The family of this 67-nucleotide sequence from Bombyx mori is "mir-2774 microRNA precursor family". Taxonomically the source falls in Bombyx (Eukaryota, Panarthropoda, Mandibulata, Neolepidoptera). Its family is annotated with RISC complex and miRNA-mediated post-transcriptional gene silencing in the Gene Ontology. The literature on the family includes a 2010 paper in BMC Genomics by Liu et al., "MicroRNAs of Bombyx mori identified by Solexa sequencing".
RNA sequence: ACAACAUUCGGACCGCCGGUCUAUCGAGCAAUAUUACCCGUUUGGUGAAAGAUCUUUCCACCGUCGU
Dot-bracket structure: ...((....(((..(.(..(.((((((((..........)))))))).).).)..)))....))...